RNA: Plastid-psbA-4 3UTR RNA
RNA sequence: AAAAUAAAGGAGCAAUAAUAAACCUCUUGAUAUAACAAGAGGUUUAUUAUUGCUCCUUUAU
Numbered sequence: 001a002a003a004a005u006a007a008a009g010g011a012g013c014a015a016u017a018a019u020a021a022a023c024c025u026c027u028u029g030a031u032a033u034a035a036c037a038a039g040a041g042g043u044u045u046a047u048u049a050u051u052g053c054u055c056c057u058u059u060a061u
Stems, first nucleotide, its partner, number of pairs: 006059012021044002024041006